The record is a 110-nucleotide RNA sequence from Peribacillus muralis, which matches "SAM riboswitch aptamer (S box leader)" in Rfam.

RNA sequence: AACUUAUCCAGAGCGACGGAGGGAAUUGGCCCUUUGAAGUCCAGCAACCUGCAUGAUGUAUGCAAGGUGCUACAUCCAACAAAAUGGUUCACCAUUUUGGAAGAUAAGGU
Numbered sequence: 001a002a003c004u005u006a007u008c009c010a011g012a013g014c015g016a017c018g019g020a021g022g023g024a025a026u027u028g029g030c031c032c033u034u035u036g037a038a039g040u041c042c043a044g045c046a047a048c049c050u051g052c053a054u055g056a057u058g059u060a061u062g063c064a065a066g067g068u069g070c071u072a073c074a075u076c077c078a079a080c081a082a083a084a085u086g087g088u089u090c091a092c093c094a095u096u097u098u099g100g101a102a103g104a105u106a107a108g109g110u
Base pairs, nucleotide, nucleotide: 001110003108004107005106006105007104008103013042015041016040017039021032022031023030026079027078028077029076043071044070045069046068048067049066050064051063052062053061075102080099081098082097083096084095085094
Description:
Lineage of the source: Bacteria > Bacillota > Caryophanales > Bacillaceae > Peribacillus. A search with the family's covariance model found it, with a score of 86 bits.